[Rfam]
Nucleotides: 134
Stems, first nucleotide, its partner, number of pairs: 001124002003121005008115002016071003021065003025061004031055001032052003038049002078102002083099002
Number, partner (000 for none) and nucleotide at each position: 001124g002123c003121g004120u005119u006118u007117u008115u009114c010000u011000a012000g013000c014000g015000a016071g017070c018069u019000u020000g021065g022064g023063a024000u025061a026060g027059u028058g029000a030000a031055a032052g033051c034050c035000a036000a037000g038049u039048a040000g041000a042000a043000c044000a045000a046000a047000g048039u049038a050034g051033g052032c053000a054000a055031u056000g057000g058028c059027g060026c061025u062000u063023u064022c065021u066000c067000u068000c069018a070017g071016c072000g073000a074000a075000g076000a077000g078102c079101u080000g081000a082000g083099u084098a085000c086000a087000a088000a089000c090000a091000g092000a093000u094000a095000a096000a097000a098084u099083g100000a101079a102078g103000u104000a105000a106000u107000a108000a109000a110000u111000u112000a113000g114009g115008g116000u117007g118006g119005a120004a121003c122000c123002g124001c125000g126000u127000u128000u129000c130000u131000g132000a133000c134000g